[Rfam]
RNA sequence: AUCUCUUUUUAAGGUAGGGACUAAGGUCUCCUAGCCCUUCCCCCCCUGGGCUUUCCAGGAUCAAGGGGGUUCUAAAGCUAGGCCAUGUUUCCUGAGCCUCAUUUAGUACGGAGAGUUAGUAGUCAUAAAACAUGCCAGUAACCUUCUAGUGCCCAAGGGUGACAGAGUGGUAACACUCUCCUUGGGGCCCGAAAGGCUAGUGGGCAUAGUUGUUACCAAGGAAGGGGUCCCCACCCCAACCUGAACUAACAGCUAGAAGCUCACCUUAGAAGAAGUGCUGGAUCCCAACAUGUCUUAUAAUGAAAGCUCAAUGGAAAGGUGAGGAGAUGGAAGCAUGGGGGUUCACUGAGUAGAUGCCCUGAAGGAGAAAUCUGAUCAGGGGCCCGUGACUAUACAUUAGGUAAACCGGGUAUAAAAACCAUGAAAGGUGACCCACAAAUUUUCCUUUAUUUUUAUGUUUUG
Numbered sequence: 001a002u003c004u005c006u007u008u009u010u011a012a013g014g015u016a017g018g019g020a021c022u023a024a025g026g027u028c029u030c031c032u033a034g035c036c037c038u039u040c041c042c043c044c045c046c047u048g049g050g051c052u053u054u055c056c057a058g059g060a061u062c063a064a065g066g067g068g069g070u071u072c073u074a075a076a077g078c079u080a081g082g083c084c085a086u087g088u089u090u091c092c093u094g095a096g097c098c099u100c101a102u103u104u105a106g107u108a109c110g111g112a113g114a115g116u117u118a119g120u121a122g123u124c125a126u127a128a129a130a131c132a133u134g135c136c137a138g139u140a141a142c143c144u145u146c147u148a149g150u151g152c153c154c155a156a157g158g159g160u161g162a163c164a165g166a167g168u169g170g171u172a173a174c175a176c177u178c179u180c181c182u183u184g185g186g187g188c189c190c191g192a193a194a195g196g197c198u199a200g201u202g203g204g205c206a207u208a209g210u211u212g213u214u215a216c217c218a219a220g221g222a223a224g225g226g227g228u229c230c231c232c233a234c235c236c237c238a239a240c241c242u243g244a245a246c247u248a249a250c251a252g253c254u255a256g257a258a259g260c261u262c263a264c265c266u267u268a269g270a271a272g273a274a275g276u277g278c279u280g281g282a283u284c285c286c287a288a289c290a291u292g293u294c295u296u297a298u299a300a301u302g303a304a305a306g307c308u309c310a311a312u313g314g315a316a317a318g319g320u321g322a323g324g325a326g327a328u329g330g331a332a333g334c335a336u337g338g339g340g341g342u343u344c345a346c347u348g349a350g351u352a353g354a355u356g357c358c359c360u361g362a363a364g365g366a367g368a369a370a371u372c373u374g375a376u377c378a379g380g381g382g383c384c385c386g387u388g389a390c391u392a393u394a395c396a397u398u399a400g401g402u403a404a405a406c407c408g409g410g411u412a413u414a415a416a417a418a419c420c421a422u423g424a425a426a427g428g429u430g431a432c433c434c435a436c437a438a439a440u441u442u443u444c445c446u447u448u449a450u451u452u453u454u455a456u457g458u459u460u461u462g
Stems, first nucleotide, its partner, number of pairs: 006012002030082005040069004045059005085336008098323005104316001107315001113309003122301002125298001130293001133140002143272007151265001152186007165178005187197003200264006273291001275289002343431005357381004363373003383410004389402002
Dot-bracket structure: .....((...)).................(((((.....((((.(((((.....)))))......))))........)))))..((((((((.....(((((.(..(.....(((......((.(....(..((....))..(((((((.((((((((......(((((....))))).)))))))(((.....)))..((((((.....................................................))))))))))))))(.((...........)).).)....).)).....))).....))..))))).....))))))))......(((((.........((((..(((.....)))....)))).((((..((..........))....))))................)))))...............................

Shown here is a 462-nucleotide RNA from Avisivirus aturki, a member of the family "Aphthovirus internal ribosome entry site (IRES)". Its family is annotated with ribosome binding in the Gene Ontology. NCBI's taxonomy places the organism under Viruses, Paavivirinae, Avisivirus, Avisivirus aturki, Avisivirus A. Rfam describes the family as follows. This family represents the internal ribosome entry site (IRES) of the the aphthoviruses. IRES elements allow cap and end-independent translation of mRNA in the host cell. The IRES achieves this by mediating the internal initiation of translation by recruiting a ribosomal 43S pre-initiation complex directly to the initiation codon and eliminates the requirement for eIF4F.